[Rfam]
RNA sequence: GAUUGCUGAGGUUCGGAAAGGUUCCCGACACGCUACUGAAAAGCAGUUACAAGGUAUGCAGGAUACGCCGCCCUGCCAACAAUC
Numbered sequence: 001g002a003u004u005g006c007u008g009a010g011g012u013u014c015g016g017a018a019a020g021g022u023u024c025c026c027g028a029c030a031c032g033c034u035a036c037u038g039a040a041a042a043g044c045a046g047u048u049a050c051a052a053g054g055u056a057u058g059c060a061g062g063a064u065a066c067g068c069c070g071c072c073c074u075g076c077c078a079a080c081a082a083u084c
Stems, first nucleotide, its partner, number of pairs: 001084005007078002011029001013028004020069003031053001032047003058076005

This 84-nucleotide sequence from a Clostridia bacterium belongs to the Rfam family "skipping-rope RNA". The organism belongs to Clostridia, within Bacteria.